[Rfam]
RNA: Nematode sRNA ceN72-3_ceN74-2
RNA sequence: UGUCACGGUCCGGCGUUGAUGGGUUAUCACUCGUAAUCUUCUGCUUGCAGGAGGCCCGUUCUUCAGGCAUCUGUCUGUUGAACAACCCCGCGUUCCUCACGGUUCGCACCCCCUUCCCAUCAGCACCAACUUGACCGUUAU
Number, nucleotide and partner (000 for none) at each position: 001u000002g141003u140004c000005a000006c137007g136008g135009u134010c133011c000012g127013g126014c000015g124016u123017u122018g121019a120020u119021g118022g117023g116024u000025u000026a000027u000028c000029a000030c000031u000032c000033g000034u000035a000036a000037u054038c053039u052040u051041c050042u049043g048044c000045u000046u000047g000048c043049a042050g041051g040052a039053g038054g037055c000056c000057c000058g000059u000060u081061c080062u000063u000064c000065a000066g000067g000068c000069a000070u000071c000072u000073g000074u000075c000076u000077g000078u000079u000080g061081a060082a000083c000084a000085a000086c000087c000088c000089c000090g107091c106092g105093u000094u000095c102096c000097u000098c000099a000100c000101g000102g095103u000104u000105c092106g091107c090108a000109c000110c000111c000112c000113c000114u000115u000116c023117c022118c021119a020120u019121c018122a017123g016124c015125a000126c013127c012128a000129a000130c000131u000132u000133g010134a009135c008136c007137g006138u000139u000140a003141u002